[Rfam]
RNA sequence: GCUGGAGUCCGUGGCGGGCUCUGUAUCCAAGCUACUGGGAAGCUCGAGUUUGUGGAUGGUUUGAAGUUGGGAGUCCUGCUGGUCAGUGCUGCACGUUGAACCGGCGUCCGCACUAAGCUUGGCGUCAACAUGGGUACCCUGGAUGAGUCCGGGUAUCCAGGUUGUCUAACGAGAUAUGCACUAGGUCUAGGGGAGAAAUCCAGCAGCCUAAGUAUCCGCGGCAAGCAGUAGUGGGAUCUCGCUGGCGAGUGAGUGCUGUUCAGUAUAGCCCAGCCAACACAGGCAGACCGAAUUCUUU
Numbered sequence: 001g002c003u004g005g006a007g008u009c010c011g012u013g014g015c016g017g018g019c020u021c022u023g024u025a026u027c028c029a030a031g032c033u034a035c036u037g038g039g040a041a042g043c044u045c046g047a048g049u050u051u052g053u054g055g056a057u058g059g060u061u062u063g064a065a066g067u068u069g070g071g072a073g074u075c076c077u078g079c080u081g082g083u084c085a086g087u088g089c090u091g092c093a094c095g096u097u098g099a100a101c102c103g104g105c106g107u108c109c110g111c112a113c114u115a116a117g118c119u120u121g122g123c124g125u126c127a128a129c130a131u132g133g134g135u136a137c138c139c140u141g142g143a144u145g146a147g148u149c150c151g152g153g154u155a156u157c158c159a160g161g162u163u164g165u166c167u168a169a170c171g172a173g174a175u176a177u178g179c180a181c182u183a184g185g186u187c188u189a190g191g192g193g194a195g196a197a198a199u200c201c202a203g204c205a206g207c208c209u210a211a212g213u214a215u216c217c218g219c220g221g222c223a224a225g226c227a228g229u230a231g232u233g234g235g236a237u238c239u240c241g242c243u244g245g246c247g248a249g250u251g252a253g254u255g256c257u258g259u260u261c262a263g264u265a266u267a268g269c270c271c272a273g274c275c276a277a278c279a280c281a282g283g284c285a286g287a288c289c290g291a292a293u294u295c296u297u298u
Stems, first nucleotide, its partner, number of pairs: 001043003004022008026040003046295007057285002060282002066274006076268003084258005090253001092251003096247001101245006108235002111233005117226005123220003126164004131159008140151004165171001173216005183209003187206001192201003

Shown here is a 298-nucleotide RNA from Caligus rogercresseyi, a member of the family "Metazoan signal recognition particle RNA". Its Rfam clan is "SRP clan". About the family: The signal recognition particle (SRP) is a universally conserved ribonucleoprotein. It is involved in the co-translational targeting of proteins to membranes. The eukaryotic SRP consists of a 300-nucleotide 7S RNA and six proteins: SRPs 72, 68, 54, 19, 14, and 9. Archaeal SRP consists of a 7S RNA and homologues of the eukaryotic SRP19 and SRP54 proteins. Eukaryotic and archaeal 7S RNAs have very similar secondary structures, as represented by this family. Eight helical elements fold into the Alu and S domains, separated by a long linker region. The Alu domain is thought to mediate the peptide chain elongation retardation function of the SRP. The universally conserved helix which interacts with the SRP54 M domain mediates signal sequence recognition. In eukaryotes and archaea, the SRP19-helix 6 complex is thought to be involved in SRP assembly and stabilises helix 8 for SRP54 binding. The Signal Recognition Particle Database (SRPDB) provides compilations of SRP components, with phylogenetic data and structural illustrations. Many sequences below the threshold for this family are clearly closely related, but are most likely to be SRP RNA derived pseudogenes. The human genome in particular is known to contain a large amount of SRP RNA related sequence, including Alu repeats. While the threshold of this family is set high so as to minimise the number of hits to such regions, it is likely that some remain. The literature on the family includes a 2001 paper in J Mol Biol by Batey et al., "Structural and energetic analysis of RNA recognition by a universally conserved protein from the signal recognition particle". It scores 192 bits against the family's covariance model.